[Rfam]
RNA sequence: GGUUUUAACCCAAGUUAACCAAGGUUAGCAUGGAUUUCGACCAUUCGAAAGAAUGCGUUGAAUAAACGAUAAAUUUUGGAUCCGCUUCUUCGGGGUUUCCGUUGGAGCAAA
Numbered sequence: 001g002g003u004u005u006u007a008a009c010c011c012a013a014g015u016u017a018a019c020c021a022a023g024g025u026u027a028g029c030a031u032g033g034a035u036u037u038c039g040a041c042c043a044u045u046c047g048a049a050a051g052a053a054u055g056c057g058u059u060g061a062a063u064a065a066a067c068g069a070u071a072a073a074u075u076u077u078g079g080a081u082c083c084g085c086u087u088c089u090u091c092g093g094g095g096u097u098u099c100c101g102u103u104g105g106a107g108c109a110a111a
Base pairs, nucleotide, nucleotide: 007036008035009033010032014029015028017026018025019024038060039059040058041057042055043054044053045052046051086109088107089106090105091104092103093102094100095099
RNA: SL2 RNA